[Rfam]
RNA sequence: ACACUGAAAGGAGGUGAUCCUGAAUUGAGUAGUACCAGGACGCGUGAGGUGGCUGUCAGCUAGCCGCCCCGCCCGCAAGGAGGCCGGAAGGCCUCACCCGGCAGGUCCGGGGCGGCGGGCUAAUCUCCGAUAGUCACCCGGCUCGCAGGCUCACCGGUCGUCCCCGGUGCCUGAUCGGUCUUCGAUCAGGAAGUAGCCUGCGAGCCGCCUUUU
Numbered sequence: 001a002c003a004c005u006g007a008a009a010g011g012a013g014g015u016g017a018u019c020c021u022g023a024a025u026u027g028a029g030u031a032g033u034a035c036c037a038g039g040a041c042g043c044g045u046g047a048g049g050u051g052g053c054u055g056u057c058a059g060c061u062a063g064c065c066g067c068c069c070c071g072c073c074c075g076c077a078a079g080g081a082g083g084c085c086g087g088a089a090g091g092c093c094u095c096a097c098c099c100g101g102c103a104g105g106u107c108c109g110g111g112g113c114g115g116c117g118g119g120c121u122a123a124u125c126u127c128c129g130a131u132a133g134u135c136a137c138c139c140g141g142c143u144c145g146c147a148g149g150c151u152c153a154c155c156g157g158u159c160g161u162c163c164c165c166g167g168u169g170c171c172u173g174a175u176c177g178g179u180c181u182u183c184g185a186u187c188a189g190g191a192a193g194u195a196g197c198c199u200g201c202g203a204g205c206c207g208c209c210u211u212u213u
Stems, first nucleotide, its partner, number of pairs: 013057004018052001058121004063116002066113004071106003139207013152169006
RNA: Actinobacteria sRNA Ms_IGR-5
Organism: Catenulispora sp.